[Rfam]
RNA: mir-236 microRNA precursor family
Organism: Steinernema carpocapsae
RNA sequence: GGUUAUCGUCCUACCUGGGCAAUAUUAGAAUGACUUUGAGAGAUCUAAUACUGUCAGGUAAAGACGAUAACC
Numbered sequence: 001g002g003u004u005a006u007c008g009u010c011c012u013a014c015c016u017g018g019g020c021a022a023u024a025u026u027a028g029a030a031u032g033a034c035u036u037u038g039a040g041a042g043a044u045c046u047a048a049u050a051c052u053g054u055c056a057g058g059u060a061a062a063g064a065c066g067a068u069a070a071c072c
Base pairs, nucleotide, nucleotide: 001072002071003070004069005068006067007066008065009064010063012060013059014058015057016056017055020053021052023050024049025048026047027046028045029044